[Rfam]
RNA sequence: CGUCGGUCCCCUCGCGGUGAUCGCUUGUAAACUCCGCCAGGCCCGGAAGGGAGCAACGGUAGCAAGUUGAUUGUGCGCCGGGGUGUGGCUGACGGGG
Numbered sequence: 001c002g003u004c005g006g007u008c009c010c011c012u013c014g015c016g017g018u019g020a021u022c023g024c025u026u027g028u029a030a031a032c033u034c035c036g037c038c039a040g041g042c043c044c045g046g047a048a049g050g051g052a053g054c055a056a057c058g059g060u061a062g063c064a065a066g067u068u069g070a071u072u073g074u075g076c077g078c079c080g081g082g083g084u085g086u087g088g089c090u091g092a093c094g095g096g097g
Base pairs, nucleotide, nucleotide: 004091005090006089007088008087010083011082012081013080014079015075017074018073019072020071021070022069023067024066025065026064027063028062034059035058036057042051043050044049
The record is a 97-nucleotide sequence from Litorivicinus lipolyticus, which matches "Bacterial small signal recognition particle RNA" in Rfam. Taxonomically the source falls in Litorivicinus (Bacteria, Pseudomonadati, Pseudomonadota, Oceanospirillales). The base pairs follow the family's consensus structure, which is taken from published work. Rfam classes the family as a non-coding RNA gene.